This 155-nucleotide sequence from Desulforamulus reducens belongs to the Rfam family "glmS glucosamine-6-phosphate activated ribozyme aptamer". The family's RNA type in Rfam is riboswitch. The organism belongs to Desulforamulus reducens, within Bacteria. Its family is annotated with regulation of gene expression and catalytic activity in the Gene Ontology. The family's consensus secondary structure is taken from published work.
RNA sequence: UAAAUAACUGAAGCGCCAGAACCUUUUACAAAGUAAGGGUUGACGAGGAGAGGGAGUAUCGAUGUUUCGGCGGAUGCCCUCCGGCCCAGUUGCGGCCGUAAAAGCAGAACAAAGCUGGAAGGUAACUUUCGGUACAAAAACUGCGGGUGACUAAA
Numbered sequence: 001u002a003a004a005u006a007a008c009u010g011a012a013g014c015g016c017c018a019g020a021a022c023c024u025u026u027u028a029c030a031a032a033g034u035a036a037g038g039g040u041u042g043a044c045g046a047g048g049a050g051a052g053g054g055a056g057u058a059u060c061g062a063u064g065u066u067u068c069g070g071c072g073g074a075u076g077c078c079c080u081c082c083g084g085c086c087c088a089g090u091u092g093c094g095g096c097c098g099u100a101a102a103a104g105c106a107g108a109a110c111a112a113a114g115c116u117g118g119a120a121g122g123u124a125a126c127u128u129u130c131g132g133u134a135c136a137a138a139a140a141c142u143g144c145g146g147g148u149g150a151c152u153a154a155a
Stems, first nucleotide, its partner, number of pairs: 020041007050081005059070004082098005104144004115132007